[Rfam]
RNA sequence: UUGCACAAUGCUAACCAUGGGCUUGUCGGAUGGAUCUCGGUCUCUUGUGAUGAAGGAAAGCCCCAAGGUUGUGCUAGAUCUACACCGUCGUUCAGUGCUGCAGGCCAUGACACUACACAUGGAUGAGUGGCCUGUGUCAGAGUAAUGGAUACACUC
Number, nucleotide and partner (000 for none) at each position: 001u000002u000003g074004c073005a072006c071007a070008a069009u000010g000011c068012u000013a000014a000015c000016c000017a000018u000019g063020g062021g061022c060023u059024u056025g000026u053027c052028g051029g000030a000031u000032g000033g000034a000035u000036c000037u000038c000039g000040g000041u000042c000043u000044c000045u000046u000047g000048u000049g000050a000051u028052g027053a026054a000055g000056g024057a000058a000059a023060g022061c021062c020063c019064c000065a000066a000067g000068g011069u008070u007071g006072u005073g004074c003075u000076a000077g000078a000079u000080c000081u000082a000083c000084a000085c000086c000087g000088u148089c147090g146091u145092u144093c000094a000095g000096u139097g138098c000099u136100g135101c134102a133103g132104g131105c000106c125107a124108u000109g000110a000111c000112a000113c000114u000115a000116c000117a000118c000119a000120u000121g000122g000123a000124u107125g106126a000127g000128u000129g000130g000131c104132c103133u102134g101135u100136g099137u000138c097139a096140g000141a000142g000143u000144a092145a091146u090147g089148g088149a000150u000151a000152c000153a000154c000155u000156c000
This 156-nucleotide sequence from Triticum aestivum belongs to the Rfam family "small nucleolar RNA snoR134". The organism belongs to Triticum, within Eukaryota. The base pairs follow the family's consensus structure, which was predicted with RNAalifold. It is annotated as an H/ACA-box small nucleolar RNA. Rfam 15.1 lists 792 matches to the family in 228 species.